Background
This 62-nucleotide RNA sequence from Hephaestia caeni belongs to the Rfam family "Fluoride riboswitch aptamer (crcB RNA motif)". Gene Ontology terms of the family: response to fluoride and positive regulation of gene expression. The family has 289 seed sequences and 2,293 matches in Rfam 15.1. For this family Rfam cites "An excited state underlies gene regulation of a transcriptional riboswitch" (Zhao et al., Nat Chem Biol, 2017).
RNA sequence: CCACGAAAAGGGAAUGGCGUCUCCCUCAACCGCCCAUUCGGGCUGAUGACUCCUACGAAACG
Numbered sequence: 001c002c003a004c005g006a007a008a009a010g011g012g013a014a015u016g017g018c019g020u021c022u023c024c025c026u027c028a029a030c031c032g033c034c035c036a037u038u039c040g041g042g043c044u045g046a047u048g049a050c051u052c053c054u055a056c057g058a059a060a061c062g
Base pairs, nucleotide, nucleotide: 010025011024012023013022016053017052019050020049021048032043033042034041035040